RNA sequence: CCUUUAGAGUAUCAUACAAACCUCAGUAGAGUAUAUAAAAGUAACUAGUAAUGAUGAAGGUACUCAAAAAGGGAUACGUUGAAAAAGGAA
Numbered sequence: 001c002c003u004u005u006a007g008a009g010u011a012u013c014a015u016a017c018a019a020a021c022c023u024c025a026g027u028a029g030a031g032u033a034u035a036u037a038a039a040a041g042u043a044a045c046u047a048g049u050a051a052u053g054a055u056g057a058a059g060g061u062a063c064u065c066a067a068a069a070a071g072g073g074a075u076a077c078g079u080u081g082a083a084a085a086a087g088g089a090a
Stems, first nucleotide, its partner, number of pairs: 001088005009077005021072003029065003034062002

The family of this 90-nucleotide RNA sequence from Silviavirus SA11 is "RAGATH-18 RNA".